[Rfam]
RNA sequence: CUGUGCUAGACGGGAAGGUAGCGGUGUCCUGUAACCUGCAAUCCGCUAUAGCAGGGUUGAAUUCCAUCUAGAGGCUUAUAUAUUGUAGGGCUGCCCUAAAUAAGUGGUGUUGACACUUAGGUCCUGCGCAACGGAAGCUCAUAAACUCCGCCAGAUCCGGAAGGAAGCAACGGUAAGUGAAUCCUUUCGUGUGCCGCGGGGGUGCCUAAGUCGAGCUAACUGUUUAGGUAACGCCUAUGAUAGUAAGUCAAUAGAUGGUGCACAG
Dot-bracket structure: ((((((..(((((((.(.(...).).))))....(((((...........)))))))).....(((((((..(((((...(((((((((..((..((((((..(((((......((((((((((((((((.((((((.((((.....(((.....(((....))).....)))...)))).)..)))))))...))))))...))))))))...))).)).)))))).))...)))))))))..)))))..))))))).))))))

Annotation
Rfam assigns this 265-nucleotide RNA sequence from Paraclostridium benzoelyticum to the family "Bacterial large signal recognition particle RNA". NCBI's taxonomy places the organism under Bacteria, Bacillati, Bacillota, Peptostreptococcales, Paraclostridium. Rfam classes the family as a non-coding RNA gene. The match comes from Rfam's covariance-model search (214 bits). The base pairs follow the family's consensus structure, which is taken from published work.